Alphaproteobacteria transfer-messenger RNA: a 352-nucleotide RNA sequence from Sphingomonas sp. Leaf357. By type it is a non-coding RNA gene.
RNA sequence: GGGCUUGGCAAAUCGAUCCGCAAAACCCAUAUAGACUUUGUCAUAAGGGGCUUGCCCCGGAGACUAUGGUGAUAAAGUGCAGCGUAAAAUAGACGCAACGGACCCGGGGGCAGUACCCGGCGGCUCCACCACAACCCGCCCGAAAGGACGGGCUAUGACGGGGCCGAAGCAGGAUCGACGUGUGUUCAAAGGCGCUGUUUUUGCCACGGCUGAGUAACCGUUUAUAGGCUCAAAACCACAAGUGCUAACGACAACGAUGCACUCGCGAUUGCGGCGUAAACCGGACCUAACGGUCUAGUUUACUAACGACAAAAGCGCGGUUGGACCGCACCGGGCAACAGAAGCGGAUUCC
Numbered sequence: 001g002g003g004c005u006u007g008g009c010a011a012a013u014c015g016a017u018c019c020g021c022a023a024a025a026c027c028c029a030u031a032u033a034g035a036c037u038u039u040g041u042c043a044u045a046a047g048g049g050g051c052u053u054g055c056c057c058c059g060g061a062g063a064c065u066a067u068g069g070u071g072a073u074a075a076a077g078u079g080c081a082g083c084g085u086a087a088a089a090u091a092g093a094c095g096c097a098a099c100g101g102a103c104c105c106g107g108g109g110g111c112a113g114u115a116c117c118c119g120g121c122g123g124c125u126c127c128a129c130c131a132c133a134a135c136c137c138g139c140c141c142g143a144a145a146g147g148a149c150g151g152g153c154u155a156u157g158a159c160g161g162g163g164c165c166g167a168a169g170c171a172g173g174a175u176c177g178a179c180g181u182g183u184g185u186u187c188a189a190a191g192g193c194g195c196u197g198u199u200u201u202u203g204c205c206a207c208g209g210c211u212g213a214g215u216a217a218c219c220g221u222u223u224a225u226a227g228g229c230u231c232a233a234a235a236c237c238a239c240a241a242g243u244g245c246u247a248a249c250g251a252c253a254a255c256g257a258u259g260c261a262c263u264c265g266c267g268a269u270u271g272c273g274g275c276g277u278a279a280a281c282c283g284g285a286c287c288u289a290a291c292g293g294u295c296u297a298g299u300u301u302a303c304u305a306a307c308g309a310c311a312a313a314a315g316c317g318c319g320g321u322u323g324g325a326c327c328g329c330a331c332c333g334g335g336c337a338a339c340a341g342a343a344g345c346g347g348a349u350u351c352c
Base pairs, nucleotide, nucleotide: 040064041063042062068205069204070203071202072201079198080197081196082195083194084193085192094184095183096182098181099180100179104120105119106118107117108116121166122165123164124163125162126161127160208218211232212231213230215228318333319332320331321330324350325349327347
Notes:
The literature on the family includes a 1996 paper in RNA by Williams and Bartel, "Phylogenetic analysis of tmRNA secondary structure". NCBI's taxonomy places the organism under Bacteria, Pseudomonadati, Alphaproteobacteria, Sphingomonadales, Sphingomonas.